[Rfam]
Annotation:
The record is a 101-nucleotide sequence from Microcebus murinus, which matches "Y RNA" in Rfam. Rfam 15.1 lists 26,986 matches to the family in 650 species. Rfam classes the family as a non-coding RNA gene. NCBI's taxonomy places the organism under Eukaryota, Teleostomi, Sarcopterygii, Tetrapoda, Microcebus. A reference for the family is Chen et al. (2000), "Ro ribonucleoproteins contribute to the resistance of Deinococcus radiodurans to ultraviolet irradiation", Genes Dev. The match comes from Rfam's covariance-model search (52 bits).
RNA sequence: GGUUGGUCCAAGUGCAGUGGUGUUUACCAUUAAUUGAUCACAACCAGUUACAGAUUCCUGUGGUCCUUCUCCACUUCCACUGCUCCACUUGACCAGCAAAG
Numbered sequence: 001g002g003u004u005g006g007u008c009c010a011a012g013u014g015c016a017g018u019g020g021u022g023u024u025u026a027c028c029a030u031u032a033a034u035u036g037a038u039c040a041c042a043a044c045c046a047g048u049u050a051c052a053g054a055u056u057c058c059u060g061u062g063g064u065c066c067u068u069c070u071c072c073a074c075u076u077c078c079a080c081u082g083c084u085c086c087a088c089u090u091g092a093c094c095a096g097c098a099a100a101g
Base pairs, nucleotide, nucleotide: 002097003096004095005094006093007092008091010090011089014086016081017080018079019078020077032064034062037059